[Rfam]
RNA sequence: AGAAAAAAGCAGAGGCUCCCGCUUCUCGCCUGAAGGGACAAAAGAGUCUCUGGGCAGAAUAUUAUUGAAAUUAAAUUCCAAUUAAAAUGGAUUUCAAGCGGGCUGUGAUAAUUUAUUAUUACUGCCCGUUUUUCUGUGC
Numbered sequence: 001a002g003a004a005a006a007a008a009g010c011a012g013a014g015g016c017u018c019c020c021g022c023u024u025c026u027c028g029c030c031u032g033a034a035g036g037g038a039c040a041a042a043a044g045a046g047u048c049u050c051u052g053g054g055c056a057g058a059a060u061a062u063u064a065u066u067g068a069a070a071u072u073a074a075a076u077u078c079c080a081a082u083u084a085a086a087a088u089g090g091a092u093u094u095c096a097a098g099c100g101g102g103c104u105g106u107g108a109u110a111a112u113u114u115a116u117u118a119u120u121a122c123u124g125c126c127c128g129u130u131u132u133u134c135u136g137u138g139c
Stems, first nucleotide, its partner, number of pairs: 011026006028055003035050005101126003105122006
RNA: Ribosomal protein L20 leader
Organism: Dellaglioa algida